RNA: Purine riboswitch aptamer
Organism: Paenibacillus solanacearum
RNA sequence: AAUUCAGUAUAAGCUUACGCUCGUAUAAAAGCAGGAAUGGGCCUGCUCGUCUCUACCCGGCCACCGGAAUGGCCGGACUACGAGUGAUACAAUGCCAUGG
Numbered sequence: 001a002a003u004u005c006a007g008u009a010u011a012a013g014c015u016u017a018c019g020c021u022c023g024u025a026u027a028a029a030a031g032c033a034g035g036a037a038u039g040g041g042c043c044u045g046c047u048c049g050u051c052u053c054u055a056c057c058c059g060g061c062c063a064c065c066g067g068a069a070u071g072g073c074c075g076g077a078c079u080a081c082g083a084g085u086g087a088u089a090c091a092a093u094g095c096c097a098u099g100g
Stems, first nucleotide, its partner, number of pairs: 018086008030047006057076007